RNA sequence: AAGCAUGUUUCAGGAGACGGCAUAGUAUAGCAUCUAUCUUGGGUACUGUUAUCUUAGAUAUGUUUAUCUUGGUGCUGUUGUCAUGCACAAAAUACUUUUAUACUUUUGCCACCGAAGGCGUAUGCACCCUGCCAAUCGCUCAGGUAAAAGGACUGAAACACUCAC
Numbered sequence: 001a002a003g004c005a006u007g008u009u010u011c012a013g014g015a016g017a018c019g020g021c022a023u024a025g026u027a028u029a030g031c032a033u034c035u036a037u038c039u040u041g042g043g044u045a046c047u048g049u050u051a052u053c054u055u056a057g058a059u060a061u062g063u064u065u066a067u068c069u070u071g072g073u074g075c076u077g078u079u080g081u082c083a084u085g086c087a088c089a090a091a092a093u094a095c096u097u098u099u100a101u102a103c104u105u106u107u108g109c110c111a112c113c114g115a116a117g118g119c120g121u122a123u124g125c126a127c128c129c130u131g132c133c134a135a136u137c138g139c140u141c142a143g144g145u146a147a148a149a150g151g152a153c154u155g156a157a158a159c160a161c162u163c164a165c
Base pairs, nucleotide, nucleotide: 006160007159008158009157010156011155012154013153020109021108022107111145112144113143114141115140118139119138120137124132125131
Shown here is a 165-nucleotide sequence from Lwoffella lincolnii, a member of the family "Glycine riboswitch aptamer".
The source organism's lineage runs through Bacteria, Pseudomonadati, Pseudomonadota, Gammaproteobacteria and Lwoffella.
The match comes from Rfam's covariance-model search (52 bits).